[Rfam]
Nucleotides: 358
Base pairs, nucleotide, nucleotide: 001354002353003352004351005350006349007348020327021326022325023324026321034313037310038309039308040307041306042305045299046298047297048296049295050070051069052068053067054066056085057084058083059082061080120135121134122133123132124131136172137171138170139169141167142166143165144164145163146162147161148160152185153184154183155182156181157180188218189217190216191215192214201235203233204232237272238271239270240269241268242267243266244265245264246263249260253290254289255288331347332346333345334344335343
Number, partner (000 for none) and nucleotide at each position: 001354g002353g003352g004351g005350g006349c007348g008000c009000a010000c011000u012000g013000g014000u015000u016000u017000c018000g019000a020327c021326c022325g023324g024000u025000u026321u027000a028000c029000a030000u031000g032000u033000g034313c035000c036000g037310c038309c039308g040307a041306g042305c043000u044000g045299c046298g047297u048296g049295u050070c051069g052068g053067g054066g055000a056085u057084c058083c059082c060000a061080g062000g063000u064000c065000a066054c067053c068052c069051c070050g071000c072000u073000a074000a075000u076000c077000a078000u079000c080061c081000c082059g083058g084057g085056a086000a087000a088000g089000g090000c091000a092000a093000u094000u095000u096000a097000c098000u099000u100000g101000c102000c103000g104000a105000c106000a107000a108000c109000a110000a111000c112000u113000a114000c115000g116000c117000a118000c119000u120135g121134g122133c123132a124131g125000c126000u127000u128000g129000a130000u131124c132123u133122g134121c135120c136172c137171g138170u139169u140000g141167c142166u143165g144164c145163a146162g147161a148160g149000a150000g151000u152185g153184c154183c155182c156181g157180u158000g159000g160148c161147u162146c163145u164144g165143c166142a167141g168000g169139a170138a171137c172136g173000c174000c175000a176000u177000u178000u179000a180157g181156c182155g183154g184153g185152c186000u187000g188218g189217u190216c191215a192214c193000a194000a195000a196000g197000c198000u199000g200000c201235g202000c203233c204232u205000c206000a207000g208000g209000g210000c211000c212000g213000c214192g215191u216190g217189a218188c219000g220000a221000g222000a223000c224000a225000u226000u227000u228000c229000u230000g231000a232204g233203g234000c235201u236000g237272g238271u239270g240269u241268c242267g243266a244265a245264g246263c247000a248000a249260c250000g251000u252000g253290c254289c255288c256000a257000c258000g259000g260249g261000c262000g263246g264245c265244u266243u267242c268241g269240a270239c271238a272237c273000g274000a275000g276000a277000u278000c279000u280000u281000u282000g283000c284000c285000g286000g287000u288255g289254g290253g291000a292000u293000a294000c295049a296048c297047a298046c299045g300000u301000a302000g303000a304000c305042g306041c307040u308039u309038g310037g311000a312000u313034g314000a315000g316000c317000u318000c319000u320000g321026a322000u323000u324023c325022u326021g327020g328000g329000a330000c331347g332346g333345g334344g335343g336000u337000u338000c339000g340000a341000c342000u343335c344334c345333c346332c347331c348007c349006g350005c351004c352003u353002c354001c355000a356000c357000c358000a

Description:
transfer-messenger RNA: a 358-nucleotide sequence from Saltatorellus ferox. Rfam's curators write: Bacterial tmRNA, also known as 10Sa RNA or SsrA, is named for its dual tRNA and mRNA-like properties. Its Rfam clan is "tRNA clan". The source organism's lineage runs through Bacteria, Pseudomonadati, Planctomycetota, Planctomycetia and Saltatorellus. The match comes from Rfam's covariance-model search (147 bits). For this family Rfam cites "Phylogenetic analysis of tmRNA secondary structure" (Williams and Bartel, RNA, 1996).